[Rfam]
RNA sequence: AGUAAAAAACAGUGGGGCCAUUGAAGGAGCGUUCACGUCGCGGUCCGUCAGAUGAAAAUCUGCGAAUCCUUCA
Numbered sequence: 001a002g003u004a005a006a007a008a009a010c011a012g013u014g015g016g017g018c019c020a021u022u023g024a025a026g027g028a029g030c031g032u033u034c035a036c037g038u039c040g041c042g043g044u045c046c047g048u049c050a051g052a053u054g055a056a057a058a059u060c061u062g063c064g065a066a067u068c069c070u071u072c073a
Stems, first nucleotide, its partner, number of pairs: 013047002016045004022073007029041003049062005

Background
Mammalian CPEB3 ribozyme: a 73-nucleotide RNA sequence from Strongylocentrotus purpuratus. Lineage of the source: Eukaryota > Metazoa > Echinodermata > Euechinoidea > Strongylocentrotus. The match comes from Rfam's covariance-model search (57 bits). The family's consensus secondary structure is taken from published work. On this family, see Teixeira et al., Nature 2004: "Autocatalytic RNA cleavage in the human beta-globin pre-mRNA promotes transcription termination".